[Rfam]
RNA sequence: CGGGAUGGCCAGACGAUCGCGUGCCACGAAAGUGGCCCGAGGAACGUCCGGGCUCCACAGAACGGGGUGGUGGGUAACGCCCACUCGGGGAAACCCGCAGGCUAGUGCCACAGAAAAUAGACCGCCCGCAAGGGUAAGGGUGAAACGGUGGUGUAAGAGACCACCAGCAUUCCAGGUGACUGGAGUGGCUAGGUAAACCCCACCCGGAGCAAGGUCAGACAGACUACUGGGUUGUUCGCUCAAUGUAGUCGGGUGGGCCGCUUGAGGGUGUCGGUAACGGCGCUCCUAGAUAGAUGAUCGUCACCGCGAUCCCGGGUAACCGGCCGCGGGACAAAACCCGGCGUAUCGGUCAUCCCGUCCA
Number, nucleotide and partner (000 for none) at each position: 001c357002g356003g355004g354005a353006u352007g351008g350009c349010c348011a346012g302013a301014c300015g299016a298017u297018c296019g000020c039021g038022u000023g036024c035025c034026a033027c032028g000029a000030a000031a000032g027033u026034g025035g024036c023037c000038c021039g020040a000041g000042g000043a000044a344045c343046g342047u000048c341049c340050g339051g338052g337053c209054u208055c207056c206057a000058c000059a000060g237061a236062a235063c234064g000065g205066g204067g203068u202069g201070g084071u083072g082073g081074g080075u000076a000077a000078c000079g000080c074081c073082c072083a071084c070085u099086c097087g096088g095089g094090g000091a000092a000093a000094c089095c088096c087097g086098c000099a085100g200101g199102c000103u000104a000105g198106u197107g194108c193109c192110a000111c000112a000113g000114a000115a000116a000117a000118u000119a000120g000121a000122c139123c138124g135125c134126c133127c132128g000129c000130a000131a000132g127133g126134g125135u124136a000137a000138g123139g122140g000141u000142g000143a000144a000145a000146c000147g165148g164149u163150g162151g161152u160153g000154u000155a000156a000157g000158a000159g000160a152161c151162c150163a149164c148165c147166a000167g189168c187169a186170u185171u184172c183173c182174a181175g180176g000177u000178g000179a000180c175181u174182g173183g172184a171185g170186u169187g168188g000189c167190u000191a000192g109193g108194u107195a000196a000197a106198c105199c101200c100201c069202a068203c067204c066205c065206g056207g055208a054209g053210c000211a000212a000213g259214g258215u257216c256217a000218g000219a000220c000221a000222g250223a249224c248225u247226a246227c245228u242229g241230g240231g239232u238233u000234g063235u062236u061237c060238g232239c231240u230241c229242a228243a000244u000245g227246u226247a225248g224249u223250c222251g000252g000253g000254u000255g000256g216257g215258c214259c213260g000261c000262u000263u000264g000265a000266g285267g284268g283269u282270g281271u280272c279273g278274g000275u000276a000277a000278c273279g272280g271281c270282g269283c268284u267285c266286c000287u000288a000289g000290a000291u000292a000293g000294a000295u000296g018297a017298u016299c015300g014301u013302c012303a000304c000305c000306g000307c000308g000309a000310u000311c000312c000313c000314g000315g000316g000317u000318a000319a000320c000321c000322g000323g000324c000325c000326g000327c000328g000329g000330g000331a000332c000333a000334a000335a000336a000337c052338c051339c050340g049341g048342c046343g045344u044345a000346u011347c000348g010349g009350u008351c007352a006353u005354c004355c003356c002357g001358u000359c000360c000361a000
RNA: Bacterial RNase P class A
Organism: Arthrobacter sp. MYb227